[Rfam]
RNA: Pseudomonas sRNA P9
RNA sequence: CGAAUUAUUACCAUCAUUCCAUAGGAAUGGUGGGCUUGUGUGUGUCUGACAAUAAACCCGCCUAAGAGGCGGGUUUA
Numbered sequence: 001c002g003a004a005u006u007a008u009u010a011c012c013a014u015c016a017u018u019c020c021a022u023a024g025g026a027a028u029g030g031u032g033g034g035c036u037u038g039u040g041u042g043u044g045u046c047u048g049a050c051a052a053u054a055a056a057c058c059c060g061c062c063u064a065a066g067a068g069g070c071g072g073g074u075u076u077a
Stems, first nucleotide, its partner, number of pairs: 011033007054076009